[Rfam]
RNA: mir-166 microRNA precursor family
RNA sequence: GUUGAGAGGAAUGUUGUCUGGCUCGAGGGUCAUGGAGGAGGAGAGUACUGAUGAGAUCAAUUCUUUCAGUUAAAGUUUCCAAUGGAAAUUUACCCUCUAACACAUCAUGAUUCUCGGACCAGGCUUCAUUCCCCCCACC
Numbered sequence: 001g002u003u004g005a006g007a008g009g010a011a012u013g014u015u016g017u018c019u020g021g022c023u024c025g026a027g028g029g030u031c032a033u034g035g036a037g038g039a040g041g042a043g044a045g046u047a048c049u050g051a052u053g054a055g056a057u058c059a060a061u062u063c064u065u066u067c068a069g070u071u072a073a074a075g076u077u078u079c080c081a082a083u084g085g086a087a088a089u090u091u092a093c094c095c096u097c098u099a100a101c102a103c104a105u106c107a108u109g110a111u112u113c114u115c116g117g118a119c120c121a122g123g124c125u126u127c128a129u130u131c132c133c134c135c136c137a138c139c
Stems, first nucleotide, its partner, number of pairs: 001139001003137002006134001008132006016124006024116012